[Rfam]
RNA sequence: UCCAACGACCUGUGCCCGGCGUCCCGUCCAUCCUCCGGGGUGUGUUCGGUCGACGCCUGGCAGUUCGACCGCCCCCAAGGAGCCAUCACAGAUUGCAUGAUGUCAAUUUCCGGUCGACAGGUUGGAGAGCGAGUCGGUAUGCGAUUUCUGCCCGAGUUCGCCCGCGAGGGUUUGAGCUCGGCGUGAGCGCUGCCAGGGCUGCUGAUUCCGUCUCCCUUGCGCUAGGCCGUCGGCCGAUUACGCUUGGGAAAAACCCAGCCGCCUACAUUC
Numbered sequence: 001u002c003c004a005a006c007g008a009c010c011u012g013u014g015c016c017c018g019g020c021g022u023c024c025c026g027u028c029c030a031u032c033c034u035c036c037g038g039g040g041u042g043u044g045u046u047c048g049g050u051c052g053a054c055g056c057c058u059g060g061c062a063g064u065u066c067g068a069c070c071g072c073c074c075c076c077a078a079g080g081a082g083c084c085a086u087c088a089c090a091g092a093u094u095g096c097a098u099g100a101u102g103u104c105a106a107u108u109u110c111c112g113g114u115c116g117a118c119a120g121g122u123u124g125g126a127g128a129g130c131g132a133g134u135c136g137g138u139a140u141g142c143g144a145u146u147u148c149u150g151c152c153c154g155a156g157u158u159c160g161c162c163c164g165c166g167a168g169g170g171u172u173u174g175a176g177c178u179c180g181g182c183g184u185g186a187g188c189g190c191u192g193c194c195a196g197g198g199c200u201g202c203u204g205a206u207u208c209c210g211u212c213u214c215c216c217u218u219g220c221g222c223u224a225g226g227c228c229g230u231c232g233g234c235c236g237a238u239u240a241c242g243c244u245u246g247g248g249a250a251a252a253a254c255c256c257a258g259c260c261g262c263c264u265a266c267a268u269u270c
Stems, first nucleotide, its partner, number of pairs: 006124008014061003018057006024049003029044002032040002069116001071114003079104002082101001084099001135192003149183004154179006160172001197263003201259004213249004219243003225235004
A. fumigatus sRNA Afu_309: a 270-nucleotide sequence from Lentithecium fluviatile. NCBI's taxonomy places the organism under Eukaryota, Dikarya, leotiomyceta, dothideomyceta, Lentithecium fluviatile. For this family Rfam cites "Small ncRNA transcriptome analysis from Aspergillus fumigatus suggests a novel mechanism for regulation of protein synthesis" (Jochl et al., Nucleic Acids Res, 2008). By type it is a small RNA.